[Rfam]
RNA sequence: AAAGCAGGCGAGGUGGUCGCGAUCGGAGACGCUGUGCCUUUCGGGGUGCGGUGGCGUCCGGUUGAGGAAAGUCCGGGCUCCCCAAUGGCCAGGCUUGCUGGGUAACGCCCAGUGCGGGUGACCGUGAGGAGAGUGCCACAGAAACACACCGCCGAUGGCCGGUCACCGGGGCAACCCGACCCGUGCACAGGUAAGGGUGCAAAGGUGCGGUAAGAGCGCACCAGCAGCAUCGAGAGGUGCUGGCUUGGUAAACCCCGGCUGGGAGCAAGGCCCAGGGACAACGGUUGGCCAUGGCACCCGUCCCGCCCCCAAUGCGCCGCUCGAGGCCGCCGGUAACGGCGGUCCCAGACAGAUGAUCACCCUCCUCGCCCCCGGGCGGUGGAGAACAGAACCCGGCUUAUGUCCUGCUUUCUGC
Numbered sequence: 001a002a003a004g005c006a007g008g009c010g011a012g013g014u015g016g017u018c019g020c021g022a023u024c025g026g027a028g029a030c031g032c033u034g035u036g037c038c039u040u041u042c043g044g045g046g047u048g049c050g051g052u053g054g055c056g057u058c059c060g061g062u063u064g065a066g067g068a069a070a071g072u073c074c075g076g077g078c079u080c081c082c083c084a085a086u087g088g089c090c091a092g093g094c095u096u097g098c099u100g101g102g103u104a105a106c107g108c109c110c111a112g113u114g115c116g117g118g119u120g121a122c123c124g125u126g127a128g129g130a131g132a133g134u135g136c137c138a139c140a141g142a143a144a145c146a147c148a149c150c151g152c153c154g155a156u157g158g159c160c161g162g163u164c165a166c167c168g169g170g171g172c173a174a175c176c177c178g179a180c181c182c183g184u185g186c187a188c189a190g191g192u193a194a195g196g197g198u199g200c201a202a203a204g205g206u207g208c209g210g211u212a213a214g215a216g217c218g219c220a221c222c223a224g225c226a227g228c229a230u231c232g233a234g235a236g237g238u239g240c241u242g243g244c245u246u247g248g249u250a251a252a253c254c255c256c257g258g259c260u261g262g263g264a265g266c267a268a269g270g271c272c273c274a275g276g277g278a279c280a281a282c283g284g285u286u287g288g289c290c291a292u293g294g295c296a297c298c299c300g301u302c303c304c305g306c307c308c309c310c311a312a313u314g315c316g317c318c319g320c321u322c323g324a325g326g327c328c329g330c331c332g333g334u335a336a337c338g339g340c341g342g343u344c345c346c347a348g349a350c351a352g353a354u355g356a357u358c359a360c361c362c363u364c365c366u367c368g369c370c371c372c373c374g375g376g377c378g379g380u381g382g383a384g385a386a387c388a389g390a391a392c393c394c395g396g397c398u399u400a401u402g403u404c405c406u407g408c409u410u411u412c413u414g415c
Stems, first nucleotide, its partner, number of pairs: 001411008011401001012361007020064008069399003073396005078265004087297001090294001092260003096257002098112005113127001114125004128255002133253002135249003149196002151192003156187002204222006224244001225242007269318003275309003279305001288302001290300001325344008